[Rfam]
This 116-nucleotide sequence from Turnix velox belongs to the Rfam family "Small nucleolar RNA SNORD90". Rfam's curators write: snoRNA HBII-295 belongs to the family of C/D snoRNAs. On this family, see Huttenhofer et al., EMBO J 2001: "RNomics: an experimental approach that identifies 201 candidates for novel, small, non-messenger RNAs in mouse".
RNA sequence: UUAAUUCCUUUCUUUGUGUCUUGUGAUGAAGCUUCAUAGGGCAGAUUCUGAGUUGAGAAAUGAGAUUUCUCUCCACUGAUACUCUUUAUAUGCCAUCUGAAGACACAAUAUUGUUU
Numbered sequence: 001u002u003a004a005u006u007c008c009u010u011u012c013u014u015u016g017u018g019u020c021u022u023g024u025g026a027u028g029a030a031g032c033u034u035c036a037u038a039g040g041g042c043a044g045a046u047u048c049u050g051a052g053u054u055g056a057g058a059a060a061u062g063a064g065a066u067u068u069c070u071c072u073c074c075a076c077u078g079a080u081a082c083u084c085u086u087u088a089u090a091u092g093c094c095a096u097c098u099g100a101a102g103a104c105a106c107a108a109u110a111u112u113g114u115u116u
Stems, first nucleotide, its partner, number of pairs: 014108008031096001035092003038086004044080001047079002050076001052074001055071006

Its family is annotated with nucleolus and RNA processing in the Gene Ontology.